[Rfam]
RNA sequence: AGUAGUAGUAAAUACUUAAAUAAGAACUUUAAGGACUUAAGUAGGGAAAGAUUCUAUAUAAAUAGUAGUUAGAUAUAGGUUAGUUAAUUCUAAGAGAUAGGGUAGUUCUAUUUUAAUAUUAGCGCUUACGCUAUACCCUUAAAAGGGAAGCUAGUUAAUAUUCUAGUACCUAGAUAUAGAUUCUCUAUAGUAAUAUAACUAAGAGUAGAGACCUUAGUAGAAGCCCUAAGAAGAGUUCUCUUUUCUUCUUAAUAGUCUAUUACCCUAAAAUUAGUUUAUCUAGAGCUAGGGUUUAAUAGCUAGAAGAGUACUAUACUUUUAUAAUAUUUAGUACACUCCUAAUAAGCCUUAAAAAUCUACUUAAAGAAAUAGUUUUUAUACUAGGUUAUACUUAUAACUAUAGUAGGUCUCUAAGGUAAAAAGCCUCUAGUUAA
Numbered sequence: 001a002g003u004a005g006u007a008g009u010a011a012a013u014a015c016u017u018a019a020a021u022a023a024g025a026a027c028u029u030u031a032a033g034g035a036c037u038u039a040a041g042u043a044g045g046g047a048a049a050g051a052u053u054c055u056a057u058a059u060a061a062a063u064a065g066u067a068g069u070u071a072g073a074u075a076u077a078g079g080u081u082a083g084u085u086a087a088u089u090c091u092a093a094g095a096g097a098u099a100g101g102g103u104a105g106u107u108c109u110a111u112u113u114u115a116a117u118a119u120u121a122g123c124g125c126u127u128a129c130g131c132u133a134u135a136c137c138c139u140u141a142a143a144a145g146g147g148a149a150g151c152u153a154g155u156u157a158a159u160a161u162u163c164u165a166g167u168a169c170c171u172a173g174a175u176a177u178a179g180a181u182u183c184u185c186u187a188u189a190g191u192a193a194u195a196u197a198a199c200u201a202a203g204a205g206u207a208g209a210g211a212c213c214u215u216a217g218u219a220g221a222a223g224c225c226c227u228a229a230g231a232a233g234a235g236u237u238c239u240c241u242u243u244u245c246u247u248c249u250u251a252a253u254a255g256u257c258u259a260u261u262a263c264c265c266u267a268a269a270a271u272u273a274g275u276u277u278a279u280c281u282a283g284a285g286c287u288a289g290g291g292u293u294u295a296a297u298a299g300c301u302a303g304a305a306g307a308g309u310a311c312u313a314u315a316c317u318u319u320u321a322u323a324a325u326a327u328u329u330a331g332u333a334c335a336c337u338c339c340u341a342a343u344a345a346g347c348c349u350u351a352a353a354a355a356u357c358u359a360c361u362u363a364a365a366g367a368a369a370u371a372g373u374u375u376u377u378a379u380a381c382u383a384g385g386u387u388a389u390a391c392u393u394a395u396a397a398c399u400a401u402a403g404u405a406g407g408u409c410u411c412u413a414a415g416g417u418a419a420a421a422a423g424c425c426u427c428u429a430g431u432u433a434a
Base pairs, nucleotide, nucleotide: 015033016032017031018030019029020028034432035431036430037429043412044411045410046409049392050391054078055077056076057075058074059073063071064070085388086387087386089146090145094140095139096112097111098110100109101108102107120133121132122131150167151166152165153164154163170384171383172382173381175380176379177378178377179376180374186197187196188195189194204361205360206359207358208357209356213346214345215344216343218341219340220339222337223336226331227330228329229249230248231247232246233245234244253302254301255300256299262292263291264290265289266288267287271283272282273281274280309326310325312323313322314321315320398407399406414426415425416424417423
RNA: Eukaryotic large subunit ribosomal RNA, nucleotides 1436 to 1869
Organism: Pyrenochaeta sp. MPI-SDFR-AT-0127